[Rfam]
RNA: Small nucleolar RNA snoR60
Organism: Miscanthus lutarioriparius
RNA sequence: UAGCACAUGAUGAGCAUACUCGGAUUCCCCUUGAGGGACAUCAAUUGGAUGAUGAUGAUUCGAGGUGAUUCGAUGCU
Numbered sequence: 001u002a003g004c005a006c007a008u009g010a011u012g013a014g015c016a017u018a019c020u021c022g023g024a025u026u027c028c029c030c031u032u033g034a035g036g037g038a039c040a041u042c043a044a045u046u047g048g049a050u051g052a053u054g055a056u057g058a059u060u061c062g063a064g065g066u067g068a069u070u071c072g073a074u075g076c077u
Stems, first nucleotide, its partner, number of pairs: 002077004